[Rfam]
RNA sequence: UAAUAUGUAUAGAAAAAGGAAGCCCUGCUAGAACAGGACUUCCCAUGUAGAGUCGUUUAAGACGGUGACAGAUUUUAACGAUAUUUAAUA
Numbered sequence: 001u002a003a004u005a006u007g008u009a010u011a012g013a014a015a016a017a018g019g020a021a022g023c024c025c026u027g028c029u030a031g032a033a034c035a036g037g038a039c040u041u042c043c044c045a046u047g048u049a050g051a052g053u054c055g056u057u058u059a060a061g062a063c064g065g066u067g068a069c070a071g072a073u074u075u076u077a078a079c080g081a082u083a084u085u086u087a088a089u090a
Base pairs, nucleotide, nucleotide: 024037025036026035027034052066053065054064055063056062057061
The family of this 90-nucleotide RNA from Pediococcus argentinicus is "RNA anti-toxin A". The base pairs follow the family's consensus structure, which was predicted with RNAalifold. On this family, see Fozo et al., Nucleic Acids Res 2010: "Abundance of type I toxin-antitoxin systems in bacteria: searches for new candidates and discovery of novel families". A search with the family's covariance model found it, with a score of 89 bits.